[Rfam]
RNA sequence: GCUUUCUUCCCCCAGAUUUGAUAGUGUAAGUUAUAGAGAAACCUUUAAGCUCCGAGGGAAAGAGC
Numbered sequence: 001g002c003u004u005u006c007u008u009c010c011c012c013c014a015g016a017u018u019u020g021a022u023a024g025u026g027u028a029a030g031u032u033a034u035a036g037a038g039a040a041a042c043c044u045u046u047a048a049g050c051u052c053c054g055a056g057g058g059a060a061a062g063a064g065c
Base pairs, nucleotide, nucleotide: 001065002064003063004062008059009058010057011056013054015052016051019047020046024042025041026034027033
MAT2A 3'UTR stem loop A: a 65-nucleotide RNA from Sarcophilus harrisii. It scores 65 bits against the family's covariance model. Pairs were carried over by alignment from the consensus structure, which is taken from published work. The family's RNA type in Rfam is cis-regulatory element.